S4-Clostridia ribosomal protein leader: a 56-nucleotide RNA sequence. Its Rfam clan is "Ribosomal Protein S4 Leader clan". Rfam classes the family as a cis-regulatory leader. The family's consensus secondary structure is taken from published work. A reference for the family is Eckert and Weinberg (2020), "Discovery of 20 novel ribosomal leader candidates in bacteria and archaea", BMC Microbiol.
[Rfam]
RNA sequence: GAAAGGCCGUAAGACACUUGCGGCUGGAUGUUUUCAUACCGGACAUCCCAAUUAGG
Numbered sequence: 001g002a003a004a005g006g007c008c009g010u011a012a013g014a015c016a017c018u019u020g021c022g023g024c025u026g027g028a029u030g031u032u033u034u035c036a037u038a039c040c041g042g043a044c045a046u047c048c049c050a051a052u053u054a055g056g
Base pairs, nucleotide, nucleotide: 005025006024007023008022009021010020011019012018026048027047028046029045030044031043032042